Rfam assigns this 49-nucleotide RNA from Haematobacter massiliensis to the family "SAM/SAH riboswitch aptamer". Rfam links the family to the GO terms S-adenosylmethionine metabolic process and regulation of gene expression. For this family Rfam cites "The structure of the SAM/SAH-binding riboswitch" (Weickhmann et al., Nucleic Acids Res, 2019).
RNA sequence: CACCCGUCACAACGGCUUCCUGGCGUGACGGGGAUGUCUUAAUGGAGCG
Dot-bracket structure: ...(((((((..(([[[.[[))..)))))))............]]]]].